[Rfam]
RNA sequence: UGCUUUUACCUGGUGCCAGCUAUUUUCUUUCAUUAGGGGAAGCAGUGAGGAAGGUAUCAAAGAGUAGCAGACUUUUAAACUUUAGACAGUUUUUACUCAGAAGCUUAUUUUUCUGUUUUAUUUCAUCCUCCAAGGAGUGCAUUCACUUGACACAUCCGCUUCUUUUAAGUGAAAGAAUACAGCAAACAAG
Numbered sequence: 001u002g003c004u005u006u007u008a009c010c011u012g013g014u015g016c017c018a019g020c021u022a023u024u025u026u027c028u029u030u031c032a033u034u035a036g037g038g039g040a041a042g043c044a045g046u047g048a049g050g051a052a053g054g055u056a057u058c059a060a061a062g063a064g065u066a067g068c069a070g071a072c073u074u075u076u077a078a079a080c081u082u083u084a085g086a087c088a089g090u091u092u093u094u095a096c097u098c099a100g101a102a103g104c105u106u107a108u109u110u111u112u113c114u115g116u117u118u119u120a121u122u123u124c125a126u127c128c129u130c131c132a133a134g135g136a137g138u139g140c141a142u143u144c145a146c147u148u149g150a151c152a153c154a155u156c157c158g159c160u161u162c163u164u165u166u167a168a169g170u171g172a173a174a175g176a177a178u179a180c181a182g183c184a185a186a187c188a189a190g
Base pairs, nucleotide, nucleotide: 002020003019004018007015008014009013029137030136031135033133034132036130037129038128039127040123041122042121047117048116049114050113052112053111054110069093070092071091073089074088094107095106096103147185148184149183155174157171158170159169160168161167
Shown here is a 190-nucleotide RNA sequence from Spermophilus dauricus, a member of the family "Connexin-43 internal ribosome entry site (IRES)".
This family represents the connexin-43 internal ribosome entry site (IRES) which allows cap independent translation during conditions such as heat shock and stress.
The literature on the family includes a 1999 paper in FEBS Lett by Schiavi et al., "Connexin43 mRNA contains a functional internal ribosome entry site".
The match comes from Rfam's covariance-model search (94 bits).
Rfam 15.1 lists 657 matches to the family in 497 species.